[Rfam]
RNA sequence: CCGUGCUAGACGGGGAGGUAGCGGUGCCCUGUAACCCGCAAUCCGCUAUAGCGGGGUUGAAAUCCUGCCUGCGGCCUUUUUUCAUAAGGUCUGACCGGCGCAAGUGGCGUUGAAGAGCGGGUCCUGCGCAACGGAAACUUGUGAACCCCGUCAGGUCCGGGAGGAAGCAGCGGUAAGCAAGCCCUUUCGUGUGCCGCAGGGGAGCCUGUUCCGAGUUAACUACGUUGGUAACGCUUGGGAGAAAAGAGUCAAAGGCGGGUGCACGG
Numbered sequence: 001c002c003g004u005g006c007u008a009g010a011c012g013g014g015g016a017g018g019u020a021g022c023g024g025u026g027c028c029c030u031g032u033a034a035c036c037c038g039c040a041a042u043c044c045g046c047u048a049u050a051g052c053g054g055g056g057u058u059g060a061a062a063u064c065c066u067g068c069c070u071g072c073g074g075c076c077u078u079u080u081u082u083c084a085u086a087a088g089g090u091c092u093g094a095c096c097g098g099c100g101c102a103a104g105u106g107g108c109g110u111u112g113a114a115g116a117g118c119g120g121g122u123c124c125u126g127c128g129c130a131a132c133g134g135a136a137a138c139u140u141g142u143g144a145a146c147c148c149c150g151u152c153a154g155g156u157c158c159g160g161g162a163g164g165a166a167g168c169a170g171c172g173g174u175a176a177g178c179a180a181g182c183c184c185u186u187u188c189g190u191g192u193g194c195c196g197c198a199g200g201g202g203a204g205c206c207u208g209u210u211c212c213g214a215g216u217u218a219a220c221u222a223c224g225u226u227g228g229u230a231a232c233g234c235u236u237g238g239g240a241g242a243a244a245a246g247a248g249u250c251a252a253a254g255g256c257g258g259g260u261g262c263a264c265g266g
Stems, first nucleotide, its partner, number of pairs: 001266006009058003012030004017025001019023001035055005064259007073250003077246001079243005085237004092230002096227005104220002106217003115211008123200006129191002132189005138181005148173004156165003
A member of the RNA family "Bacterial large signal recognition particle RNA" from Thermincola carboxydiphila, 266 nucleotides long.
Lineage of the source: Bacteria > Bacillota > Eubacteriales > Thermincolaceae > Thermincola carboxydiphila.
By type it is a non-coding RNA gene.
A search with the family's covariance model found it, with a score of 222 bits.
Rfam's curators write: The signal recognition particle (SRP) is a universally conserved ribonucleoprotein involved in the co-translational targeting of proteins to membranes.